[Rfam]
This 114-nucleotide RNA from Dicaeum eximium belongs to the Rfam family "Potassium channel RNA editing signal".
Taxonomically the source falls in Dicaeum (Eukaryota, Chordata, Teleostomi, Neognathae).
The family's consensus secondary structure is taken from published work.
It scores 100 bits against the family's covariance model.

RNA sequence: CUGGGUUACGGUGACAUGUACCCCAUGACGUGGUCGGGCAUGUUGGUGGGCGCUCUGUGCGCCCUGGCCGGCGUUCUCACCAUCGCCAUGCCCGUGCCCGUCAUCGUCAAUAAU
Numbered sequence: 001c002u003g004g005g006u007u008a009c010g011g012u013g014a015c016a017u018g019u020a021c022c023c024c025a026u027g028a029c030g031u032g033g034u035c036g037g038g039c040a041u042g043u044u045g046g047u048g049g050g051c052g053c054u055c056u057g058u059g060c061g062c063c064c065u066g067g068c069c070g071g072c073g074u075u076c077u078c079a080c081c082a083u084c085g086c087c088a089u090g091c092c093c094g095u096g097c098c099c100g101u102c103a104u105c106g107u108c109a110a111u112a113a114u
Stems, first nucleotide, its partner, number of pairs: 002113001004111001008107004013102003018097004037077002040074001049063003

About the family: This family represents a group of sequences related to the human potassium channel Kv1.1 hairpin element which directs the efficient modification of an adenosine to inosine by an adenosine deaminase acting on RNA (ADAR). The ADAR modification causes an isoleucine/valine recoding event which lies in the ion-conducting pore of the potassium channel. It is thought that this editing event targets the process of fast inactivation and allows a more rapid recovery from inactivation at negative potentials.